[Rfam]
A member of the RNA family "Transposase-2 RNA" from Bifidobacterium longum, 71 nucleotides long. By type it is a small RNA. Rfam's curators put it in the seed alignment. The organism belongs to Bifidobacterium longum subsp. infantis, within Bacteria.

RNA sequence: GAAACGCGAACCAAGCAGCCCCAUCCCAAGGGCAUGAGACUUGGAGCGAACACCCGCAAGAGUGUUCUACA
Numbered sequence: 001g002a003a004a005c006g007c008g009a010a011c012c013a014a015g016c017a018g019c020c021c022c023a024u025c026c027c028a029a030g031g032g033c034a035u036g037a038g039a040c041u042u043g044g045a046g047c048g049a050a051c052a053c054c055c056g057c058a059a060g061a062g063u064g065u066u067c068u069a070c071a
Base pairs, nucleotide, nucleotide: 011044012043013042014041015040018033019032020031021030048067049066050065051064052063053062055060